Shown here is a 75-nucleotide RNA sequence from Streptomyces boncukensis, a member of the family "ASpks TB sRNA". The literature on the family includes a 2009 paper in Mol Microbiol by Arnvig and Young, "Identification of small RNAs in Mycobacterium tuberculosis". The match comes from Rfam's covariance-model search (86 bits). The organism belongs to Streptomyces, within Bacteria. The family has 77 seed sequences and 9,052 matches in Rfam 15.1.
RNA sequence: CUUCACCGACCCCAGCCACAGCGGCCGCUCCGGGUCGCGCUCCUGCCCGUACGUGGCCAGCAGCGCAUUCGCCUC
Numbered sequence: 001c002u003u004c005a006c007c008g009a010c011c012c013c014a015g016c017c018a019c020a021g022c023g024g025c026c027g028c029u030c031c032g033g034g035u036c037g038c039g040c041u042c043c044u045g046c047c048c049g050u051a052c053g054u055g056g057c058c059a060g061c062a063g064c065g066c067a068u069u070c071g072c073c074u075c
Stems, first nucleotide, its partner, number of pairs: 015025003031071003038065002043060003047056003